[Rfam]
RNA: Glycine riboswitch aptamer
Organism: Amycolatopsis marina
RNA sequence: CCGAACCGCGCGGGAGAGACCAGGCCACCAACAGUGGGCCUGGCGCCGAAGGAGCAACUCCUCCCCGGAAACUCUCAGGCACCAGGGACCGCGGGGUGAGA
Number, nucleotide and partner (000 for none) at each position: 001c000002c000003g000004a000005a000006c096007c095008g000009c093010g092011c091012g090013g089014g000015a000016g000017a000018g000019a000020c043021c042022a041023g040024g039025c038026c037027a000028c000029c000030a000031a000032c000033a000034g000035u000036g000037g026038g025039c024040c023041u022042g021043g020044c000045g080046c079047c078048g076049a075050a000051g000052g074053a073054g072055c000056a000057a000058c068059u067060c000061c000062u000063c000064c000065c000066c000067g059068g058069a000070a000071a000072c054073u053074c052075u049076c048077a000078g047079g046080c045081a000082c000083c000084a000085g000086g000087g000088a000089c013090c012091g011092c010093g009094g000095g007096g006097u000098g000099a000100g000101a000